Source information
The record is a 126-nucleotide RNA sequence from Propionispora sp. 2/2-37, which matches "c-di-AMP riboswitch aptamer (ydaO/yuaA leader)" in Rfam.
RNA sequence: UGAGCAAUUAAGCCGAAUCCAGCUCAGGUACGGGGGAACCGUUUGUCAGGGGUGAAACUCAUUAUGAGUAGGGGGACCUCAACCCUAACCCGUCAGCUAACCUCGGAGGCUAUGGGAGGAGCAGUC
Numbered sequence: 001u002g003a004g005c006a007a008u009u010a011a012g013c014c015g016a017a018u019c020c021a022g023c024u025c026a027g028g029u030a031c032g033g034g035g036g037a038a039c040c041g042u043u044u045g046u047c048a049g050g051g052g053u054g055a056a057a058c059u060c061a062u063u064a065u066g067a068g069u070a071g072g073g074g075g076a077c078c079u080c081a082a083c084c085c086u087a088a089c090c091c092g093u094c095a096g097c098u099a100a101c102c103u104c105g106g107a108g109g110c111u112a113u114g115g116g117a118g119g120a121g122c123a124g125u126c
Stems, first nucleotide, its partner, number of pairs: 011111004019028002031105005040049001050091003058068004071085003
Dot-bracket structure: ..........((((....((......))..(((((....(........)(((.....((((...))))..(((.........)))...))).........)))))..))))...............

Description:
Rfam describes the family as follows. This family represents a conserved RNA structure found upstream of the ydaO and yuaA genes in Bacillus subtilis and related genes in other bacteria. The ydaO/yuaA element is thought to act as a genetic 'off' switch for the ydaO and yuaA genes in its native state. It is believed that the element may be triggered during osmotic shock leading to activation of ydaO, a predicted amino acid transporter gene, and members of the yuaA-yubG operon which code for KtrA and KtrB K+ transporters. The match comes from Rfam's covariance-model search (90 bits). Its family is annotated with cyclic-di-AMP binding and regulation of gene expression in the Gene Ontology. The organism belongs to Propionispora, within Bacteria.